Record summary: The record is a 52-nucleotide RNA sequence from Suricata suricatta, which matches "mir-1302 microRNA precursor family" in Rfam. Gene Ontology terms of the family: miRNA-mediated post-transcriptional gene silencing and RISC complex. The match comes from Rfam's covariance-model search (64 bits).
[Rfam]
RNA sequence: UUUUUGGUAUAAGUAUGUCCUGUGCAGUAUUUGGGACAUACUUUUACCAAAA
Numbered sequence: 001u002u003u004u005u006g007g008u009a010u011a012a013g014u015a016u017g018u019c020c021u022g023u024g025c026a027g028u029a030u031u032u033g034g035g036a037c038a039u040a041c042u043u044u045u046a047c048c049a050a051a052a
Stems, first nucleotide, its partner, number of pairs: 006048004011043002014040003018036004022031001